[Rfam]
RNA sequence: CUCCAUGACUCCAUGGGGGCUGCCGCUCGUGGCUGUCCCCCUUCCUAGGCAUGGAAGAGCAGCUUCUUGCUAAUUGGCAAAACUUCUACCAUCCUGUUGGUAGUAGUCGUUGACUGUGGCAAGGAACAAGC
Dot-bracket structure: .((((((.......((((.(.(((......))).)..))))........))))))............((.(..(((...(..((...((((......))))...))........)....)))..).))...

Shown here is a 131-nucleotide sequence from Coturnix japonica, a member of the family "Small nucleolar RNA SNORA24". By type it is an H/ACA-box small nucleolar RNA. The match comes from Rfam's covariance-model search (74 bits). The base pairs follow the family's consensus structure, which was predicted with RNAfold. About the family: ACA24 is a member of the H/ACA class of snoRNA that guide the sites of modification of uridines to pseudouridines.